Rfam assigns this 79-nucleotide sequence from Cyclopterus lumpus to the family "Small nucleolar RNA MBII-202". Gene Ontology terms of the family: nucleolus and RNA processing. The family's consensus secondary structure was predicted with PFOLD. It scores 67 bits against the family's covariance model.
RNA sequence: UGAUGAUAAAUCUCCGGAAUCUCUGUAUUUCUUUGAUGAAACACUUGAACCUAUUUUCUGAUGACUGUUUCUUAAUAUC
Numbered sequence: 001u002g003a004u005g006a007u008a009a010a011u012c013u014c015c016g017g018a019a020u021c022u023c024u025g026u027a028u029u030u031c032u033u034u035g036a037u038g039a040a041a042c043a044c045u046u047g048a049a050c051c052u053a054u055u056u057u058c059u060g061a062u063g064a065c066u067g068u069u070u071c072u073u074a075a076u077a078u079c
Stems, first nucleotide, its partner, number of pairs: 002079004